RNA: Lysine riboswitch aptamer
RNA sequence: UGGUGGGGUAGAGGCGCGAAUGCAGAUAAGUACACACUUGGAGGAUGACAACGUAGAGAAGUGUGAAAAGGAUCAUUUGCCGAAGUGGAAAAGAGGAGUCAGACCUUUUCUGCUGGGGUUGCAUUGAAGAAGUGUAACACUGUCACAGUCAAUAGACUGUGGAGAACUACUGUUGUG
Numbered sequence: 001u002g003g004u005g006g007g008g009u010a011g012a013g014g015c016g017c018g019a020a021u022g023c024a025g026a027u028a029a030g031u032a033c034a035c036a037c038u039u040g041g042a043g044g045a046u047g048a049c050a051a052c053g054u055a056g057a058g059a060a061g062u063g064u065g066a067a068a069a070g071g072a073u074c075a076u077u078u079g080c081c082g083a084a085g086u087g088g089a090a091a092a093g094a095g096g097a098g099u100c101a102g103a104c105c106u107u108u109u110c111u112g113c114u115g116g117g118g119u120u121g122c123a124u125u126g127a128a129g130a131a132g133u134g135u136a137a138c139a140c141u142g143u144c145a146c147a148g149u150c151a152a153u154a155g156a157c158u159g160u161g162g163a164g165a166a167c168u169a170c171u172g173u174u175g176u177g
Stems, first nucleotide, its partner, number of pairs: 007171005016080007033065007084114010115141002118138008143162007